The record is a 49-nucleotide RNA sequence, which matches "DUF3800-XI RNA" in Rfam. From the family's description: Actinobacteria, Firmicutes, Proteobacteria, Spirochaetes (1 example).
RNA sequence: UGGGCUGGCCGCAUGGUCUUUGGUCCACCGACGGGCGGGGAUUUACCCC
Numbered sequence: 001u002g003g004g005c006u007g008g009c010c011g012c013a014u015g016g017u018c019u020u021u022g023g024u025c026c027a028c029c030g031a032c033g034g035g036c037g038g039g040g041a042u043u044u045a046c047c048c049c
Stems, first nucleotide, its partner, number of pairs: 001027006007018004